RNA sequence: GGUGCUUGCCCUCCAUGGGCGUUUCCUCCCUAGACUCCGGGCCGCCCGCGAGGGCGGCCCUUCUUUUAUUCACCC
Numbered sequence: 001g002g003u004g005c006u007u008g009c010c011c012u013c014c015a016u017g018g019g020c021g022u023u024u025c026c027u028c029c030c031u032a033g034a035c036u037c038c039g040g041g042c043c044g045c046c047c048g049c050g051a052g053g054g055c056g057g058c059c060c061u062u063c064u065u066u067u068a069u070u071c072a073c074c075c
Base pairs, nucleotide, nucleotide: 008020009019010018011017039060040059041058042057043056044055045054046053047052
Notes:
The record is a 75-nucleotide RNA from Methylobacterium nodulans, which matches "Makes More Granules Regulator RNA (mmgR)" in Rfam. The source organism's lineage runs through Bacteria, Pseudomonadati, Pseudomonadota, Alphaproteobacteria and Methylobacterium nodulans. The match comes from Rfam's covariance-model search (66 bits).